[Rfam]
RNA sequence: GCGGGUGUGGUGUAGCCUGGUAACACGCGAGCUUGCCAAGCUCGUGCCUCGGGUUCAAAUCCCGACAUCCGCA
Numbered sequence: 001g002c003g004g005g006u007g008u009g010g011u012g013u014a015g016c017c018u019g020g021u022a023a024c025a026c027g028c029g030a031g032c033u034u035g036c037c038a039a040g041c042u043c044g045u046g047c048c049u050c051g052g053g054u055u056c057a058a059a060u061c062c063c064g065a066c067a068u069c070c071g072c073a
Stems, first nucleotide, its partner, number of pairs: 001072007010026004028044005049065005
RNA: tRNA